This 143-nucleotide RNA from Olea europaea belongs to the Rfam family "MIR828 microRNA precursor family". The match comes from Rfam's covariance-model search (84 bits). The family has 16 seed sequences and 204 matches in Rfam 15.1.
[Rfam]
RNA sequence: GUAAUCUUUCUUGCUCAAAUGAGUAUUCCAACAGCAGCAAGCACUUGUGCAUUUCAAAACAUUAAUUUCUUCGCACAGAUUUGUGUUUUAUGAGAUGCUGGUGUUGGUGCUUCUGCGAUGCUCAUUUGGGCAAGCAAUAUUAC
Numbered sequence: 001g002u003a004a005u006c007u008u009u010c011u012u013g014c015u016c017a018a019a020u021g022a023g024u025a026u027u028c029c030a031a032c033a034g035c036a037g038c039a040a041g042c043a044c045u046u047g048u049g050c051a052u053u054u055c056a057a058a059a060c061a062u063u064a065a066u067u068u069c070u071u072c073g074c075a076c077a078g079a080u081u082u083g084u085g086u087u088u089u090a091u092g093a094g095a096u097g098c099u100g101g102u103g104u105u106g107g108u109g110c111u112u113c114u115g116c117g118a119u120g121c122u123c124a125u126u127u128g129g130g131c132a133a134g135c136a137a138u139a140u141u142a143c
Stems, first nucleotide, its partner, number of pairs: 004140002007137002010134018029115002
The literature on the family includes a 2006 paper in Genes Dev by Rajagopalan et al., "A diverse and evolutionarily fluid set of microRNAs in Arabidopsis thaliana". NCBI's taxonomy places the organism under Eukaryota, Viridiplantae, Oleeae, Olea, Olea europaea.